[Rfam]
RNA: Selenocysteine insertion sequence 1
RNA sequence: GUUUAUUCUAUGAAGAUAUCCUUUGAAACACUACGUGUAGGGGGUGUCUGAUCAAAUGUAAAC
Numbered sequence: 001g002u003u004u005a006u007u008c009u010a011u012g013a014a015g016a017u018a019u020c021c022u023u024u025g026a027a028a029c030a031c032u033a034c035g036u037g038u039a040g041g042g043g044g045u046g047u048c049u050g051a052u053c054a055a056a057u058g059u060a061a062a063c
Base pairs, nucleotide, nucleotide: 001063002062003061004060005059015048016047017046018045019044020043021042022041023040024039029037030036031035